[Rfam]
RNA sequence: AAAGCGUAGGGCGAUGGGGCCCGCCCGGAACCGCUCUCCGAGCUGAUGGCUCCUACACCGGG
Dot-bracket structure: .........[[[[..((((((]]]].......(((.....)))....)))))).........
A member of the RNA family "Fluoride riboswitch aptamer (crcB RNA motif)" from bacterium HR12, 62 nucleotides long. Rfam 15.1 lists 2,293 matches to the family in 1,982 species.